Background: Potassium channel RNA editing signal: a 114-nucleotide RNA sequence from Oncorhynchus kisutch. On this family, see Bhalla et al., Nat Struct Mol Biol 2004: "Control of human potassium channel inactivation by editing of a small mRNA hairpin".

[Rfam]
RNA sequence: GUCGGAUAUGGAGACAUGAAACCAAUUACUGUCGGUGGCAAGAUAGUGGGCUCGCUCUGUGCCAUAGCGGGUGUGUUAACCAUAGCUCUUCCAGUGCCCGUCAUUGUAUCCAAC
Numbered sequence: 001g002u003c004g005g006a007u008a009u010g011g012a013g014a015c016a017u018g019a020a021a022c023c024a025a026u027u028a029c030u031g032u033c034g035g036u037g038g039c040a041a042g043a044u045a046g047u048g049g050g051c052u053c054g055c056u057c058u059g060u061g062c063c064a065u066a067g068c069g070g071g072u073g074u075g076u077u078a079a080c081c082a083u084a085g086c087u088c089u090u091c092c093a094g095u096g097c098c099c100g101u102c103a104u105u106g107u108a109u110c111c112a113a114c
Stems, first nucleotide, its partner, number of pairs: 001114002004111002007108005013102003018097001020095001037077004049063003

The match comes from Rfam's covariance-model search (109 bits).